Record summary:
Rfam assigns this 85-nucleotide sequence from Salvia splendens to the family "Small nucleolar RNA SNORD34". Pairs were carried over by alignment from the consensus structure, which was predicted with PFOLD. The family's RNA type in Rfam is C/D-box small nucleolar RNA. Taxonomically the source falls in core Calosphace (Eukaryota, Tracheophyta, Spermatophyta, Lamiales). Rfam's curators write: snoRNA U34 is found in intron 5 of the ribosomal protein L13a gene in humans. It scores 46 bits against the family's covariance model. On this family, see Galardi et al., Mol Cell Biol 2002: "Purified box C/D snoRNPs are able to reproduce site-specific 2'-O-methylation of target RNA in vitro".

[Rfam]
RNA sequence: CGAGGCCUGUGAUGAUCUAAUUAUUUGCCUACAUUGUCUGAUUCCUUUAACUGAAGACUCUUUUUGUAAUAAGUCUGAGGCCUCG
Numbered sequence: 001c002g003a004g005g006c007c008u009g010u011g012a013u014g015a016u017c018u019a020a021u022u023a024u025u026u027g028c029c030u031a032c033a034u035u036g037u038c039u040g041a042u043u044c045c046u047u048u049a050a051c052u053g054a055a056g057a058c059u060c061u062u063u064u065u066g067u068a069a070u071a072a073g074u075c076u077g078a079g080g081c082c083u084c085g
Stems, first nucleotide, its partner, number of pairs: 001085002004082004